[Rfam]
RNA sequence: CACUUUACCUCGGGGUGCCCAUCACGGCUGAGACGCAAAAGCGGACCCGUUGAACCUGAACCGGUCAACACCGGCGGAGGGAAGGUUUCGCUGUCCUUU
Numbered sequence: 001c002a003c004u005u006u007a008c009c010u011c012g013g014g015g016u017g018c019c020c021a022u023c024a025c026g027g028c029u030g031a032g033a034c035g036c037a038a039a040a041g042c043g044g045a046c047c048c049g050u051u052g053a054a055c056c057u058g059a060a061c062c063g064g065u066c067a068a069c070a071c072c073g074g075c076g077g078a079g080g081g082a083a084g085g086u087u088u089c090g091c092u093g094u095c096c097u098u099u
Stems, first nucleotide, its partner, number of pairs: 007086004011049004016043001017028003035042002055080003061074004
The family of this 99-nucleotide RNA from Paracoccus amoyensis is "TPP riboswitch aptamer (THI element)". Its family is annotated with thiamine pyrophosphate binding in the Gene Ontology.